Shown here is a 170-nucleotide RNA sequence from Chionoecetes opilio, a member of the family "U1 spliceosomal RNA".
Lineage of the source: Eukaryota > Eumetazoa > Bilateria > Decapoda > Chionoecetes.
Its Rfam clan is "U1 clan".
Rfam classes the family as a spliceosomal small nuclear RNA.
Rfam describes the family as follows. U1 is a small nuclear RNA (snRNA) component of the spliceosome (involved in pre-mRNA splicing). Its 5' end forms complementary base pairs with the 5' splice junction, thus defining the 5' donor site of an intron.
The match comes from Rfam's covariance-model search (119 bits).
RNA sequence: AUACUUUCCUGGCACAGGAGAUACCGCGAUCCUGAAGGCGGUUUUUUCCCCAAAGGGGAGGCCCACCAUUGCACUCCGGCGGUUUCUGACCCUUGCGAUUAACCCAAAUGUGGUUUUAAAUCGAGUGUGAAAUUUUUUUUAGCGGGGGAUUGCGUUCGCGCAUCCCCCUA
Numbered sequence: 001a002u003a004c005u006u007u008c009c010u011g012g013c014a015c016a017g018g019a020g021a022u023a024c025c026g027c028g029a030u031c032c033u034g035a036a037g038g039c040g041g042u043u044u045u046u047u048c049c050c051c052a053a054a055g056g057g058g059a060g061g062c063c064c065a066c067c068a069u070u071g072c073a074c075u076c077c078g079g080c081g082g083u084u085u086c087u088g089a090c091c092c093u094u095g096c097g098a099u100u101a102a103c104c105c106a107a108a109u110g111u112g113g114u115u116u117u118a119a120a121u122c123g124a125g126u127g128u129g130a131a132a133u134u135u136u137u138u139u140u141a142g143c144g145g146g147g148g149a150u151u152g153c154g155u156u157c158g159c160g161c162a163u164c165c166c167c168c169u170a
Stems, first nucleotide, its partner, number of pairs: 012128004017050002020047002023042005052094002055091001057090001059087003064082001066079002096123003099119001101116001103113002144169005151162004
Dot-bracket structure: ...........((((.((.((.(((((..........)))))...)).)).((.(.(.(((..(.((..........))..)..)))..)).)).((((.(.((.......))..)..).))).))))...............(((((..((((....))))..))))).
Description
A reference for the family is Zwieb (1997), "The uRNA database", Nucleic Acids Res.